[Rfam]
RNA sequence: GGCCUCCCUCUGUGGGGCGAUCGAUCUGGAAGCCCCGUGAUUGAUCACCCUGCAGAGGGAGGCC
Numbered sequence: 001g002g003c004c005u006c007c008c009u010c011u012g013u014g015g016g017g018c019g020a021u022c023g024a025u026c027u028g029g030a031a032g033c034c035c036c037g038u039g040a041u042u043g044a045u046c047a048c049c050c051u052g053c054a055g056a057g058g059g060a061g062g063c064c
Stems, first nucleotide, its partner, number of pairs: 001064017019046008029036001